[Rfam]
A member of the RNA family "U4 spliceosomal RNA" from Hymenochirus boettgeri, 141 nucleotides long. The family's RNA type in Rfam is spliceosomal small nuclear RNA. The match comes from Rfam's covariance-model search (53 bits). About the family: U4 small nuclear RNA (U4 snRNA) is a component of the major U2-dependent spliceosome.
RNA sequence: AGCUUUGGCCUGUCAGUGGCAGUGAUAUAGCAAUGAGGUUAACCGAGGCGUGAUUAUUGCUAGUUGAAAAUUUUCCCAAUCUACCCCAGCCAUGGAUGACGGAAAUACAGUCAGCAUGGCAAUUUUGACAGCUCUCAGGAG
Numbered sequence: 001a002g003c004u005u006u007g008g009c010c011u012g013u014c015a016g017u018g019g020c021a022g023u024g025a026u027a028u029a030g031c032a033a034u035g036a037g038g039u040u041a042a043c044c045g046a047g048g049c050g051u052g053a054u055u056a057u058u059g060c061u062a063g064u065u066g067a068a069a070a071u072u073u074u075c076c077c078a079a080u081c082u083a084c085c086c087c088a089g090c091c092a093u094g095g096a097u098g099a100c101g102g103a104a105a106u107a108c109a110g111u112c113a114g115c116a117u118g119g120c121a122a123u124u125u126u127g128a129c130a131g132c133u134c135u136c137a138g139g140a141g
Stems, first nucleotide, its partner, number of pairs: 024054001026052003030049001031047001037044002089120005095115001097113004102108001132141003